[Rfam]
RNA sequence: UGUUGAAGGGAUGAUAAGCCUUGCAGCAACUCGAGUGUUAACAAAAAAUUAUCUGAUCAACU
Numbered sequence: 001u002g003u004u005g006a007a008g009g010g011a012u013g014a015u016a017a018g019c020c021u022u023g024c025a026g027c028a029a030c031u032c033g034a035g036u037g038u039u040a041a042c043a044a045a046a047a048a049u050u051a052u053c054u055g056a057u058c059a060a061c062u
Base pairs, nucleotide, nucleotide: 002061003060004059005058006057